[Rfam]
RNA sequence: UGGGAGGCGGAUACCUGGACAGACCCGAGUGGUGGCCUGUCCGUCACUAGCCCUCCCCAGAGCAUCCCUGCUUUCUGAUGACCGCGGCGAAUUGAGAGAAAUCGCCACGGACAGAUACGGAGCAGACACUC
Numbered sequence: 001u002g003g004g005a006g007g008c009g010g011a012u013a014c015c016u017g018g019a020c021a022g023a024c025c026c027g028a029g030u031g032g033u034g035g036c037c038u039g040u041c042c043g044u045c046a047c048u049a050g051c052c053c054u055c056c057c058c059a060g061a062g063c064a065u066c067c068c069u070g071c072u073u074u075c076u077g078a079u080g081a082c083c084g085c086g087g088c089g090a091a092u093u094g095a096g097a098g099a100a101a102u103c104g105c106c107a108c109g110g111a112c113a114g115a116u117a118c119g120g121a122g123c124a125g126a127c128a129c130u131c
Stems, first nucleotide, its partner, number of pairs: 002057006016043003022037001024035002068125007082110003087105004

This 131-nucleotide sequence from Poecilia reticulata belongs to the Rfam family "Small Cajal body specific RNA 8". On this family, see Darzacq et al., EMBO J 2002: "Cajal body-specific small nuclear RNAs: a novel class of 2'-O-methylation and pseudouridylation guide RNAs". scaRNAs are a specific class of small nuclear RNAs which localise to the Cajal bodies and guide the modification of RNA polymerase II transcribed spliceosomal RNAs U1, U2, U4, U5 and U12. U92 belong to the H/ACA box class of guide RNAs as it has the predicted hairpin-hinge-hairpin-tail structure, conserved H/ACA-box motifs and is found associated with GAR1. By type it is a small Cajal body RNA.